Overview:
Shown here is an 80-nucleotide sequence from Myotis brandtii, a member of the family "mir-9186 microRNA precursor family". The organism belongs to Myotis, within Eukaryota. A search with the family's covariance model found it, with a score of 84 bits. The family has 31 seed sequences and 143 matches in Rfam 15.1. The base pairs follow the family's consensus structure, which was predicted with RNAalifold.
RNA sequence: UAAGCAGAGGUUGGCGACAUCACUGCUACUGAGGUAAUGGCUGCCCACAGUAGCAGCCAUGUCGCCCUCCUCCCCCUACA
Numbered sequence: 001u002a003a004g005c006a007g008a009g010g011u012u013g014g015c016g017a018c019a020u021c022a023c024u025g026c027u028a029c030u031g032a033g034g035u036a037a038u039g040g041c042u043g044c045c046c047a048c049a050g051u052a053g054c055a056g057c058c059a060u061g062u063c064g065c066c067c068u069c070c071u072c073c074c075c076c077u078a079c080a
Base pairs, nucleotide, nucleotide: 001078002077004075007072008071009070010069013066014065015064016063017062018061019060020059023056024055025054026053027052028051029050030049031048